[Rfam]
RNA sequence: UUGCUUUGUAUAGCUGGGAGGAUUUGAACCGAUAAUAGGUUCGACCGAGACCCACGCAGUGGGUUGAGGAACGCCGGAGCAGAGCGACGGCGACCCCGAAGGGGUGAGGGCCGAAGGCCCGAAUAAUCCUCCCAGCCGCGCCA
Numbered sequence: 001u002u003g004c005u006u007u008g009u010a011u012a013g014c015u016g017g018g019a020g021g022a023u024u025u026g027a028a029c030c031g032a033u034a035a036u037a038g039g040u041u042c043g044a045c046c047g048a049g050a051c052c053c054a055c056g057c058a059g060u061g062g063g064u065u066g067a068g069g070a071a072c073g074c075c076g077g078a079g080c081a082g083a084g085c086g087a088c089g090g091c092g093a094c095c096c097c098g099a100a101g102g103g104g105u106g107a108g109g110g111c112c113g114a115a116g117g118c119c120c121g122a123a124u125a126a127u128c129c130u131c132c133c134a135g136c137c138g139c140g141c142c143a
Stems, first nucleotide, its partner, number of pairs: 015134007023126001033106002040100004047065001072092005
Source information:
Rfam assigns this 143-nucleotide sequence from Marinobacter sp. B9-2 to the family "RtT RNA". The base pairs follow the family's consensus structure, which is taken from published work. Rfam describes the family as follows. This family represents a bacterial cis-regulatory element known as RtT RNA. The exact function of RtT is unknown although it is thought that it may be involved in changing the cellular response in relation to amino acid starvation. The organism belongs to Marinobacter, within Bacteria. On this family, see Bosl and Kersten, Nucleic Acids Res 1991: "A novel RNA product of the tyrT operon of Escherichia coli". Rfam links the family to the GO term cellular response to amino acid starvation. A search with the family's covariance model found it, with a score of 46 bits.